[Rfam]
RNA sequence: CCGUGCUAGAUGGGGAGGUAGCGGUGCCCUGUAGCCUGCAAUCCGCUAUAGCAGGAUCGAACUCCACGCAUAGGUACCCCCAUGUAGGGUCUGCCUGUGGUAAGUGGUGUUGAUAAUUGGGUCCCGCGCAACGGAAAUUCAUGAACCCCGUCAGGUCCGGAAGGAAGCAGCGGUAAGUGAACCCUUUCGUGUGCCGCGGGUAAGCCUGGUUGGAGCUAACUGCCAUGGUAACGCCUGGAUGGUGGCAUCGAAGCGUGGUGCACGG
Numbered sequence: 001c002c003g004u005g006c007u008a009g010a011u012g013g014g015g016a017g018g019u020a021g022c023g024g025u026g027c028c029c030u031g032u033a034g035c036c037u038g039c040a041a042u043c044c045g046c047u048a049u050a051g052c053a054g055g056a057u058c059g060a061a062c063u064c065c066a067c068g069c070a071u072a073g074g075u076a077c078c079c080c081c082a083u084g085u086a087g088g089g090u091c092u093g094c095c096u097g098u099g100g101u102a103a104g105u106g107g108u109g110u111u112g113a114u115a116a117u118u119g120g121g122u123c124c125c126g127c128g129c130a131a132c133g134g135a136a137a138u139u140c141a142u143g144a145a146c147c148c149c150g151u152c153a154g155g156u157c158c159g160g161a162a163g164g165a166a167g168c169a170g171c172g173g174u175a176a177g178u179g180a181a182c183c184c185u186u187u188c189g190u191g192u193g194c195c196g197c198g199g200g201u202a203a204g205c206c207u208g209g210u211u212g213g214a215g216c217u218a219a220c221u222g223c224c225a226u227g228g229u230a231a232c233g234c235c236u237g238g239a240u241g242g243u244g245g246c247a248u249c250g251a252a253g254c255g256u257g258g259u260g261c262a263c264g265g
Stems, first nucleotide, its partner, number of pairs: 001265006009058003012030004017025001019023001035055005064258006073249003077245001080242004085237004092230002096227006104220002106217003114212009123200006129191002132189005138181005148173004156165003
Dot-bracket structure: ((((((..(((((((.(.(...).).))))....(((((...........)))))))).....((((((...(((.(..((((.((((...((..((((((..(((((.....(((((((((((((((((.(((((.(((((.....((((....(((....)))....))))...)))))...)))))))...))))))...)))))))))..))).)).)))))).))...)))).))))..).)))...)))))).))))))
Description
A member of the RNA family "Bacterial large signal recognition particle RNA" from Fonticella tunisiensis, 265 nucleotides long. The match comes from Rfam's covariance-model search (228 bits). The organism belongs to Fonticella, within Bacteria. The family's consensus secondary structure is taken from published work. Rfam describes the family as follows. The signal recognition particle (SRP) is a universally conserved ribonucleoprotein involved in the co-translational targeting of proteins to membranes.